[Rfam]
RNA sequence: ACCUGUUUCGGGCGCUUCGCGGUGCCCGAAGCAUCAGAGACAGACUGUGCCCCGGGAAGUUCUGGGCACUUCAGGGCGUU
Numbered sequence: 001a002c003c004u005g006u007u008u009c010g011g012g013c014g015c016u017u018c019g020c021g022g023u024g025c026c027c028g029a030a031g032c033a034u035c036a037g038a039g040a041c042a043g044a045c046u047g048u049g050c051c052c053c054g055g056g057a058a059g060u061u062c063u064g065g066g067c068a069c070u071u072c073a074g075g076g077c078g079u080u
Stems, first nucleotide, its partner, number of pairs: 004033013047069006054062001
The record is an 80-nucleotide RNA sequence from Streptomyces sp. sk2.1, which matches "nrdJ RNA" in Rfam. NCBI's taxonomy places the organism under Bacteria, Actinomycetota, Actinomycetes, Streptomycetaceae, Streptomyces. It is annotated as a small RNA. The match comes from Rfam's covariance-model search (79 bits). Pairs were carried over by alignment from the consensus structure, which is taken from published work.